[Rfam]
RNA sequence: CGGGCGGACACGCUCAAUUCCCGCAAGGGGAACCGGGGAUCCACCGGUGGCGACCUCCAGCGCCACCACCGGGGUGAGUCCGAGUCUCUCGGUAGGGCUGCUCCGGCCCGAACCCGUCAGCUAACCCGGUAGGCGUCAACGAGAGGAGCU
Dot-bracket structure: ..........((((...(((........)))((((((....(............................)(((.....((((.....))))..((((.......))))...))).........)))))).))))...............